[Rfam]
RNA: THF (Tetrahydrofolate) riboswitch aptamer
Organism: Eubacterium sp. CAG:841
RNA sequence: AACAGAGUAAGGUGCGCCGCGUAAAGUGCCGGAGGUACGGGGAGUUGAUCUCCGGACGAAAACGCUUAUGCGUUGCGGUGGCGCACUUGCAUCCCGCUGUU
Numbered sequence: 001a002a003c004a005g006a007g008u009a010a011g012g013u014g015c016g017c018c019g020c021g022u023a024a025a026g027u028g029c030c031g032g033a034g035g036u037a038c039g040g041g042g043a044g045u046u047g048a049u050c051u052c053c054g055g056a057c058g059a060a061a062a063c064g065c066u067u068a069u070g071c072g073u074u075g076c077g078g079u080g081g082c083g084c085a086c087u088u089g090c091a092u093c094c095c096g097c098u099g100u101u
Base pairs, nucleotide, nucleotide: 001101002100003099004098005097010088011087012086013085014084015083016082017081018080019079020077021076022075026057027056029055030054031053032052033051034050035049036048040094041093042092044090061074062073063072064071